[Rfam]
RNA sequence: GUCAGAGAAUAUGUUGUGCGUGUGUGUGGCGUGUUCGUCCACAAGGUGUUUGGCGGGAUUCUACCCUGUUCAAUCGGGGAGCGCGUAGUCGUGAUUGUGUCGAACCGUAACCCACUAUAGACGUUCCAGCGCAUUUU
Numbered sequence: 001g002u003c004a005g006a007g008a009a010u011a012u013g014u015u016g017u018g019c020g021u022g023u024g025u026g027u028g029g030c031g032u033g034u035u036c037g038u039c040c041a042c043a044a045g046g047u048g049u050u051u052g053g054c055g056g057g058a059u060u061c062u063a064c065c066c067u068g069u070u071c072a073a074u075c076g077g078g079g080a081g082c083g084c085g086u087a088g089u090c091g092u093g094a095u096u097g098u099g100u101c102g103a104a105c106c107g108u109a110a111c112c113c114a115c116u117a118u119a120g121a122c123g124u125u126c127c128a129g130c131g132c133a134u135u136u137u
Stems, first nucleotide, its partner, number of pairs: 006137005012131005018124004023119003026115004030107002033105005040099005047091002050088003053084003061081002064078003068074002
RNA: h2cR sRNA